[Rfam]
Shown here is a 75-nucleotide sequence from Alligator mississippiensis, a member of the family "Mammalian CPEB3 ribozyme". The base pairs follow the family's consensus structure, which is taken from published work.
RNA sequence: UAUGGCUGUAACAGCCACAGCAGAAGCACACUCCCUGCGACCCUGCCAGAUCCUAGCGAAUCUGCAAAUUCUGCU
Numbered sequence: 001u002a003u004g005g006c007u008g009u010a011a012c013a014g015c016c017a018c019a020g021c022a023g024a025a026g027c028a029c030a031c032u033c034c035c036u037g038c039g040a041c042c043c044u045g046c047c048a049g050a051u052c053c054u055a056g057c058g059a060a061u062c063u064g065c066a067a068a069u070u071c072u073g074c075u
Stems, first nucleotide, its partner, number of pairs: 014042001016039001019075007026038003047064005053058001